[Rfam]
RNA sequence: GGCAGAGUAGAUAAUUGUGCGUUAAGUGUCAGUCGGACGGGAAGUUGCCGCUGAACGAAAAAUCAAGUUUGAUUUGCGGUACAAUUGUCGCAUUCCGCUGCC
Numbered sequence: 001g002g003c004a005g006a007g008u009a010g011a012u013a014a015u016u017g018u019g020c021g022u023u024a025a026g027u028g029u030c031a032g033u034c035g036g037a038c039g040g041g042a043a044g045u046u047g048c049c050g051c052u053g054a055a056c057g058a059a060a061a062a063u064c065a066a067g068u069u070u071g072a073u074u075u076g077c078g079g080u081a082c083a084a085u086u087g088u089c090g091c092a093u094u095c096c097g098c099u100g101c102c
Base pairs, nucleotide, nucleotide: 001102002101003100004099005098010089011088012087013086014085015084016083017082018081019080020078021077022076026056027055029054030053031052032051034050035049036048040095041094042093044091060075061074062073063072
Annotation
Rfam assigns this 102-nucleotide RNA sequence from Clostridium sp. BL8 to the family "THF (Tetrahydrofolate) riboswitch aptamer". Its family is annotated with tetrahydrofolate metabolic process in the Gene Ontology. Rfam describes the family as follows. Tetrahydrofolate (THF) riboswitch was first reported for Ames et al. as an RNA motif in 5' untranslated (5'-UTR)regions of folate transport and biosynthesis genes in Firmicutes genomes. The family has 101 seed sequences and 747 matches in Rfam 15.1. A reference for the family is Trausch et al. (2011), "The structure of a tetrahydrofolate-sensing riboswitch reveals two ligand binding sites in a single aptamer", Structure. The source organism's lineage runs through Bacteria, Clostridia, Eubacteriales, Clostridiaceae and Clostridium.